[Rfam]
RNA sequence: GCGAAUUUAUCUUAACGUCACACAUGGUCCGUCACGCCUGACCUGGGUGCCUGAAAGCCUUGAAUUUAAAGGGUUGAGGGUUGGUCGGUGGGGGUCAUGGAGGCUCAAC
Numbered sequence: 001g002c003g004a005a006u007u008u009a010u011c012u013u014a015a016c017g018u019c020a021c022a023c024a025u026g027g028u029c030c031g032u033c034a035c036g037c038c039u040g041a042c043c044u045g046g047g048u049g050c051c052u053g054a055a056a057g058c059c060u061u062g063a064a065u066u067u068a069a070a071g072g073g074u075u076g077a078g079g080g081u082u083g084g085u086c087g088g089u090g091g092g093g094g095u096c097a098u099g100g101a102g103g104c105u106c107a108a109c
Stems, first nucleotide, its partner, number of pairs: 023099008035090003039087005049081004
Shown here is a 109-nucleotide sequence from Simiduia aestuariiviva, a member of the family "t44 RNA". From the family's description: This family consists of a number of bacterial RNA genes of between 135 and 170 bases in length. The t44 gene has been identified in several species of enteric bacteria but homologs have also been identified in Pseudomonas and Coxiella species. It is annotated as a small RNA. The literature on the family includes a 2002 paper in Nucleic Acids Res by Tjaden et al., "Transcriptome analysis of Escherichia coli using high-density oligonucleotide probe arrays".